RNA sequence: AACCUAACCCGCACUUGGCAAUGAUCUGGGAUAUAGCUAUAACAACAGGGCGGUAUGGUUAAAAAACGCAUAAACAAUACUGAUCCCGUCGUUCAGGUUCGUUUAUGCGUCAUGGUUGGAAACUUCCAUGGGACCUGUAAAAAGGUCU
Numbered sequence: 001a002a003c004c005u006a007a008c009c010c011g012c013a014c015u016u017g018g019c020a021a022u023g024a025u026c027u028g029g030g031a032u033a034u035a036g037c038u039a040u041a042a043c044a045a046c047a048g049g050g051c052g053g054u055a056u057g058g059u060u061a062a063a064a065a066a067c068g069c070a071u072a073a074a075c076a077a078u079a080c081u082g083a084u085c086c087c088g089u090c091g092u093u094c095a096g097g098u099u100c101g102u103u104u105a106u107g108c109g110u111c112a113u114g115g116u117u118g119g120a121a122a123c124u125u126c127c128a129u130g131g132g133a134c135c136u137g138u139a140a141a142a143a144g145g146u147c148u
Stems, first nucleotide, its partner, number of pairs: 001060004009053004014048002067109009077099001080096004085091001111130005118123001131148006
RNA: LOOT RNA